[Rfam]
RNA sequence: GGAAAUGCUUUGACGGAGAAGAGUACGCAGUGCUUCUUGACAGGGAGGGAAAGCCAGAGAUUGAGAGCUGUCCCCGAGAAUCAGGCUGCCGAAGUUCGCUCCUGAGCAGUCCUUUGAAUGAAGUUUUGAAAAAAAUCUUCUAGUAGGAGGAACCGGGCUAUCGUCCGUUAUCUGAAAUGAAGUGAGAUUCGUUUAUUCGGCAUGUCCACAUAGACGAUCUAAUUAGGGUGGUACCACGGCUUUUCGUCCCUUGU
Numbered sequence: 001g002g003a004a005a006u007g008c009u010u011u012g013a014c015g016g017a018g019a020a021g022a023g024u025a026c027g028c029a030g031u032g033c034u035u036c037u038u039g040a041c042a043g044g045g046a047g048g049g050a051a052a053g054c055c056a057g058a059g060a061u062u063g064a065g066a067g068c069u070g071u072c073c074c075c076g077a078g079a080a081u082c083a084g085g086c087u088g089c090c091g092a093a094g095u096u097c098g099c100u101c102c103u104g105a106g107c108a109g110u111c112c113u114u115u116g117a118a119u120g121a122a123g124u125u126u127u128g129a130a131a132a133a134a135a136u137c138u139u140c141u142a143g144u145a146g147g148a149g150g151a152a153c154c155g156g157g158c159u160a161u162c163g164u165c166c167g168u169u170a171u172c173u174g175a176a177a178u179g180a181a182g183u184g185a186g187a188u189u190c191g192u193u194u195a196u197u198c199g200g201c202a203u204g205u206c207c208a209c210a211u212a213g214a215c216g217a218u219c220u221a222a223u224u225a226g227g228g229u230g231g232u233a234c235c236a237c238g239g240c241u242u243u244u245c246g247u248c249c250c251u252u253g254u
Stems, first nucleotide, its partner, number of pairs: 007107002015102004027089005036078003047075003051071001110151006154167003185220005225251004236247004
Dot-bracket structure: ......((......((((........(((((....(((........(((.(...................).))))))......))))).........))))...))..((((((..............................))))))..(((........))).................(((((..........................)))))....((((.......((((....))))))))...
RNA: T-box leader
Organism: Paenibacillus whitsoniae